[Rfam]
RNA sequence: GGCCUCCCUCUGUGUGGCAAUCAAUCUGGGGUCCCUGUGAUUGAUCGCCCCACAGAGGGAGGCC
Numbered sequence: 001g002g003c004c005u006c007c008c009u010c011u012g013u014g015u016g017g018c019a020a021u022c023a024a025u026c027u028g029g030g031g032u033c034c035c036u037g038u039g040a041u042u043g044a045u046c047g048c049c050c051c052a053c054a055g056a057g058g059g060a061g062g063c064c
Stems, first nucleotide, its partner, number of pairs: 001064014016049003020045007029036002
mir-9242 microRNA precursor family: a 64-nucleotide RNA from Myotis myotis. NCBI's taxonomy places the organism under Eukaryota, Opisthokonta, Sarcopterygii, Yangochiroptera, Myotis. Gene Ontology terms of the family: miRNA-mediated post-transcriptional gene silencing and RISC complex.